[Rfam]
RNA sequence: GAGUGAAGUGAUGUUUUACCAUCUUUCGGGACUGACUUAAAAGUGAUGAUAAAAGUUUAUACUGAUCACUC
Dot-bracket structure: ((((((...........................................................))))))
Numbered sequence: 001g002a003g004u005g006a007a008g009u010g011a012u013g014u015u016u017u018a019c020c021a022u023c024u025u026u027c028g029g030g031a032c033u034g035a036c037u038u039a040a041a042a043g044u045g046a047u048g049a050u051a052a053a054a055g056u057u058u059a060u061a062c063u064g065a066u067c068a069c070u071c
Stems, first nucleotide, its partner, number of pairs: 001071006

A member of the RNA family "Small nucleolar RNA SNORD2" from Pelusios castaneus, 71 nucleotides long. By type it is a C/D-box small nucleolar RNA. Lineage of the source: Eukaryota > Opisthokonta > Bilateria > Testudinata > Pelusios. Rfam 15.1 lists 1,116 matches to the family in 660 species.